[Rfam]
RNA: Histone 3' UTR stem-loop
RNA sequence: UCAAAGGCUCUUUUCAGAGCCACCCACACUUUCAAGUAAAAAGAGU
Numbered sequence: 001u002c003a004a005a006g007g008c009u010c011u012u013u014u015c016a017g018a019g020c021c022a023c024c025c026a027c028a029c030u031u032u033c034a035a036g037u038a039a040a041a042a043g044a045g046u
Stems, first nucleotide, its partner, number of pairs: 006021006